This 84-nucleotide RNA sequence from Alkalibacter rhizosphaerae belongs to the Rfam family "c-di-GMP-I riboswitch aptamer". Gene Ontology term of the family: cyclic-di-GMP binding. It scores 77 bits against the family's covariance model. About the family: GEMM was predicted in a large-scale screen for bacterial structured RNA regulatory elements.
[Rfam]
Nucleotides: 084
Base pairs, nucleotide, nucleotide: 012037013036017032018031019030020029021028022027040078041077042076043075046074047073048070049069050068055064056063057062
Number, partner (000 for none) and nucleotide at each position: 001000c002000a003000g004000c005000g006000a007000c008000a009000a010000u011000a012037g013036c014000a015000a016000a017032c018031c019030a020029a021028u022027c023000g024000a025000a026000a027022g028021a029020u030019u031018g032017g033000g034000a035000c036013g037012c038000a039000a040078a041077g042076c043075c044000a045000a046074g047073g048070g049069c050068c051000u052000a053000c054000c055064c056063c057062c058000g059000a060000a061000a062057g063056g064055g065000a066000a067000a068050g069049g070048c071000a072000g073047c074046c075043g076042g077041u078040u079000g080000c081000c082000g083000a084000a